RNA sequence: UAGAUUUGACUGAAGUCAAACUUCAUAAAGUUUGACCAAGUUUAUAGAAAAAAUAUGAACAUUUACAAUACAAAUCUAUAUGAUGUGAAAGUGUAUUCAAUAAUGAAUCUAAUGAUAUUGAUUUGUUAUUGUAUACGUUAAUAUUUUUGUCUACAAACUUUGUCAAAGUUUACGAAGUUUGACUUUGACCAAAGCUAA
Numbered sequence: 001u002a003g004a005u006u007u008g009a010c011u012g013a014a015g016u017c018a019a020a021c022u023u024c025a026u027a028a029a030g031u032u033u034g035a036c037c038a039a040g041u042u043u044a045u046a047g048a049a050a051a052a053a054u055a056u057g058a059a060c061a062u063u064u065a066c067a068a069u070a071c072a073a074a075u076c077u078a079u080a081u082g083a084u085g086u087g088a089a090a091g092u093g094u095a096u097u098c099a100a101u102a103a104u105g106a107a108u109c110u111a112a113u114g115a116u117a118u119u120g121a122u123u124u125g126u127u128a129u130u131g132u133a134u135a136c137g138u139u140a141a142u143a144u145u146u147u148u149g150u151c152u153a154c155a156a157a158c159u160u161u162g163u164c165a166a167a168g169u170u171u172a173c174g175a176a177g178u179u180u181g182a183c184u185u186u187g188a189c190c191a192a193a194g195c196u197a198a
Base pairs, nucleotide, nucleotide: 005193006192007191008190011187012186013185014184015183016182017181018180019179020178021177022176023175024174026172031167032166033165034164035163045153046152047151048150050148051147052146054143055142056141058139059138060137062135064133065132066131067130070126071125072124073123074122075121
A member of the RNA family "MIR1435 microRNA precursor family" from Aegilops tauschii, 198 nucleotides long. The family has 3 seed sequences and 1,765 matches in Rfam 15.1. The family's consensus secondary structure was predicted with RNAalifold. Lineage of the source: Eukaryota > Tracheophyta > Liliopsida > Pooideae > Aegilops tauschii. The match comes from Rfam's covariance-model search (98 bits). Its family is annotated with miRNA-mediated post-transcriptional gene silencing and RISC complex in the Gene Ontology.